[Rfam]
RNA sequence: AUGCUCACAAGAACGCUUAUCCUGCCGUGUGGCUGCGAUGGGUGCUGCGAAAACGUGAGCUAGAGCACGAGUAUUGCUUUGGGAGUGUCACAUCCCAGGCCACAUGAGACACUACAGUUUUCAAUACAACA
Numbered sequence: 001a002u003g004c005u006c007a008c009a010a011g012a013a014c015g016c017u018u019a020u021c022c023u024g025c026c027g028u029g030u031g032g033c034u035g036c037g038a039u040g041g042g043u044g045c046u047g048c049g050a051a052a053a054c055g056u057g058a059g060c061u062a063g064a065g066c067a068c069g070a071g072u073a074u075u076g077c078u079u080u081g082g083g084a085g086u087g088u089c090a091c092a093u094c095c096c097a098g099g100c101c102a103c104a105u106g107a108g109a110c111a112c113u114a115c116a117g118u119u120u121u122c123a124a125u126a127c128a129a130c131a
Stems, first nucleotide, its partner, number of pairs: 003060006014049003021042004071127001073125004079117003084113006091106001093102001
The family of this 131-nucleotide sequence from Atrichornis clamosus is "Small Cajal body specific RNA 23". The match comes from Rfam's covariance-model search (60 bits). Rfam 15.1 lists 399 matches to the family in 374 species. Rfam links the family to the GO terms RNA processing, nucleolus and Cajal body. The source organism's lineage runs through Eukaryota, Deuterostomia, Teleostomi, Coelurosauria and Atrichornis. For this family Rfam cites "Cajal body-specific small nuclear RNAs: a novel class of 2'-O-methylation and pseudouridylation guide RNAs" (Darzacq et al., EMBO J, 2002). Rfam's curators write: scaRNAs are a specific class of small nuclear RNAs which localise to the Cajal bodies and guide the modification of RNA polymerase II transcribed spliceosomal RNAs U1, U2, U4, U5 and U12. ACA11 belongs to the H/ACA box class of guide RNAs as it has the predicted hairpin-hinge-hairpin-tail structure,the conserved H/ACA-box motifs and is found associated with GAR1. H/ACA snRNAs are predicted to guide the modification of uridines to pseudouridines in substrate RNAs however, no target RNA has been identified for scaRNA ACA11.